The record is a 111-nucleotide RNA sequence from Bacillus thuringiensis, which matches "skipping-rope RNA" in Rfam.
[Rfam]
RNA sequence: GACUGUUGAGGUAGAACAGGUAGCUACACGCUUGAAUAUGUAUUGAACAGUUCGAGUCUUAAAAAAAGCUUAAUUGCUAAGAGAUGCGGGAUUACCACCCCACCAACAGUC
Numbered sequence: 001g002a003c004u005g006u007u008g009a010g011g012u013a014g015a016a017c018a019g020g021u022a023g024c025u026a027c028a029c030g031c032u033u034g035a036a037u038a039u040g041u042a043u044u045g046a047a048c049a050g051u052u053c054g055a056g057u058c059u060u061a062a063a064a065a066a067a068g069c070u071u072a073a074u075u076g077c078u079a080a081g082a083g084a085u086g087c088g089g090g091a092u093u094a095c096c097a098c099c100c101c102a103c104c105a106a107c108a109g110u111c
Stems, first nucleotide, its partner, number of pairs: 001111008011027004019096004029081001030057008086103001088101003